Rfam assigns this 383-nucleotide RNA from Rhizorhabdus wittichii to the family "Bacterial RNase P class A". Rfam's curators put it in the seed alignment. Taxonomically the source falls in Rhizorhabdus wittichii (Bacteria, Alphaproteobacteria, Sphingomonadales, Rhizorhabdus). Pairs were carried over by alignment from the consensus structure, which is taken from published work.

RNA sequence: CCAGAGGGCCGGGCGGUCGCCGCGCAGCGAUGCGGGGAGGAAAGUCCGGGCUCCAAGGAGUGACGGUGCCGGGUAACGCCCGGCGGGGGCGACCCCAGGGACAGUGCCACAGAAAGCAGACCGCCCGGCGGACCGCCAAGCUCGCUUGGUAUGUUCCGGGCAAGGUCGAAAGGGUGCGGCAAGAGCGCACCGCGGUCCCGGCAACGGGAACGGCAUGGUAAACCCCACCGGGAGCAAGAUCGAAUAGGGACGGCGCAUGGGCUACUCCGCCCGGUCGUCCGGGUUGAUUGCUGGAGGCCGGGCGCGAGCCCGGUCCUAGAGGAAUGAUCGCCCAUCCGGCUUCGGCCGGUGGACAGAACCCGGCUUACAGGCCCUCUGGUUCU
Numbered sequence: 001c002c003a004g005a006g007g008g009c010c011g012g013g014c015g016g017u018c019g020c021c022g023c024g025c026a027g028c029g030a031u032g033c034g035g036g037g038a039g040g041a042a043a044g045u046c047c048g049g050g051c052u053c054c055a056a057g058g059a060g061u062g063a064c065g066g067u068g069c070c071g072g073g074u075a076a077c078g079c080c081c082g083g084c085g086g087g088g089g090c091g092a093c094c095c096c097a098g099g100g101a102c103a104g105u106g107c108c109a110c111a112g113a114a115a116g117c118a119g120a121c122c123g124c125c126c127g128g129c130g131g132a133c134c135g136c137c138a139a140g141c142u143c144g145c146u147u148g149g150u151a152u153g154u155u156c157c158g159g160g161c162a163a164g165g166u167c168g169a170a171a172g173g174g175u176g177c178g179g180c181a182a183g184a185g186c187g188c189a190c191c192g193c194g195g196u197c198c199c200g201g202c203a204a205c206g207g208g209a210a211c212g213g214c215a216u217g218g219u220a221a222a223c224c225c226c227a228c229c230g231g232g233a234g235c236a237a238g239a240u241c242g243a244a245u246a247g248g249g250a251c252g253g254c255g256c257a258u259g260g261g262c263u264a265c266u267c268c269g270c271c272c273g274g275u276c277g278u279c280c281g282g283g284u285u286g287a288u289u290g291c292u293g294g295a296g297g298c299c300g301g302g303c304g305c306g307a308g309c310c311c312g313g314u315c316c317u318a319g320a321g322g323a324a325u326g327a328u329c330g331c332c333c334a335u336c337c338g339g340c341u342u343c344g345g346c347c348g349g350u351g352g353a354c355a356g357a358a359c360c361c362g363g364c365u366u367a368c369a370g371g372c373c374c375u376c377u378g379g380u381u382c383u
Base pairs, nucleotide, nucleotide: 001379002378003377004376005375006374007373008372009371010370011368012332013331014330015329016328017327018326020037021036023034024033025032026031042366043365044364046363047362048361049360050359051234052233053232054231060266064230065229066228067227068226069083070082071081072080073079084098085096086095087094088093099225100224104223105222106219107218108217121165122164123161124160125159126158127157128156130154173191174190175189176188177187178186192214193212194211196209197208198207199206200205238289239288240287241286248280249279250278251277252276253275258273259272260271261270262269296315297314298313299312300311301310302309303308